[Rfam]
RNA: c-di-GMP-I riboswitch aptamer
RNA sequence: UAUUUUUGAGGGCAAACCCGUUGAAAAUCGGGGACGCAAAGCUUCCGGCCUAAAGCACAUGAUGCAAUGGUAGCGGGGUUGCCAGU
Numbered sequence: 001u002a003u004u005u006u007u008g009a010g011g012g013c014a015a016a017c018c019c020g021u022u023g024a025a026a027a028u029c030g031g032g033g034a035c036g037c038a039a040a041g042c043u044u045c046c047g048g049c050c051u052a053a054a055g056c057a058c059a060u061g062a063u064g065c066a067a068u069g070g071u072a073g074c075g076g077g078g079u080u081g082c083c084a085g086u
Base pairs, nucleotide, nucleotide: 012037013036017032018031019030020029022027040080041079042078043077045076046075047074048071049070050069055065056064057063